[Rfam]
RNA sequence: AUGGUGGUCCGAGACACAUACUUUUUAUUUUCGAACGGGUGAGUGUACAAUCAUGUUGGAAGAUGUAUAUAUUUUACUCGGCUUACCUUUUGGAGGACAAAUUGUUACGUGUCCUCCAA
Numbered sequence: 001a002u003g004g005u006g007g008u009c010c011g012a013g014a015c016a017c018a019u020a021c022u023u024u025u026u027a028u029u030u031u032c033g034a035a036c037g038g039g040u041g042a043g044u045g046u047a048c049a050a051u052c053a054u055g056u057u058g059g060a061a062g063a064u065g066u067a068u069a070u071a072u073u074u075u076a077c078u079c080g081g082c083u084u085a086c087c088u089u090u091u092g093g094a095g096g097a098c099a100a101a102u103u104g105u106u107a108c109g110u111g112u113c114c115u116c117c118a119a
Base pairs, nucleotide, nucleotide: 002118003117004116006114007113010109011108013106014105015104028096029095030094031093032092033091034090035089037088038087039086040085041084042083043082044081053072057069058068060066
The family of this 119-nucleotide sequence from Medicago truncatula is "MIR2679 microRNA precursor family". Lineage of the source: Eukaryota > Viridiplantae > Euphyllophyta > eudicotyledons > Medicago.